[Rfam]
RNA sequence: CUGCAAGCCUCCAGCAUGCUGGGGUCUGGGGUGGCCCUGUGCAUUCCUGCCGUGCUUGCGAGAACAUUGUGGAAUGGUUUGAGGCCUUGCCCUGCUGCGUCUGGAGCAAGGUUAUAGAAGUUUCAGACAUUG
Numbered sequence: 001c002u003g004c005a006a007g008c009c010u011c012c013a014g015c016a017u018g019c020u021g022g023g024g025u026c027u028g029g030g031g032u033g034g035c036c037c038u039g040u041g042c043a044u045u046c047c048u049g050c051c052g053u054g055c056u057u058g059c060g061a062g063a064a065c066a067u068u069g070u071g072g073a074a075u076g077g078u079u080u081g082a083g084g085c086c087u088u089g090c091c092c093u094g095c096u097g098c099g100u101c102u103g104g105a106g107c108a109a110g111g112u113u114a115u116a117g118a119a120g121u122u123u124c125a126g127a128c129a130u131u132g
Stems, first nucleotide, its partner, number of pairs: 003059006017043003022037005070125005085111006092104003
Record summary
Shown here is a 132-nucleotide RNA sequence from Myotis myotis, a member of the family "Small nucleolar RNA SNORA9". The family's RNA type in Rfam is H/ACA-box small nucleolar RNA. Lineage of the source: Eukaryota > Euteleostomi > Amniota > Eutheria > Myotis. From the family's description: ACA9 is a member of the H/ACA class of snoRNA that guide the sites of modification of uridines to pseudouridines. Gene Ontology terms of the family: RNA processing and nucleolus. The family's consensus secondary structure was predicted with PFOLD.